[Rfam]
RNA sequence: GUGUCAAUGAUGAGAACUCAUAUUGUCUCGAAGAGAGAUGAUGACAUAAAAAUCAUGCUCAAUAGGCUUACACUGACACCC
Number, nucleotide and partner (000 for none) at each position: 001g081002u000003g079004u078005c075006a074007a000008u072009g071010a000011u000012g000013a000014g000015a000016a000017c000018u000019c000020a000021u000022a000023u000024u000025g000026u000027c000028u000029c000030g000031a000032a000033g000034a000035g000036a000037g000038a000039u000040g000041a000042u000043g000044a000045c000046a000047u000048a000049a000050a000051a000052a000053u000054c000055a000056u000057g000058c000059u000060c000061a000062a000063u000064a000065g000066g000067c000068u000069u000070a000071c009072a008073c000074u006075g005076a000077c000078a004079c003080c000081c001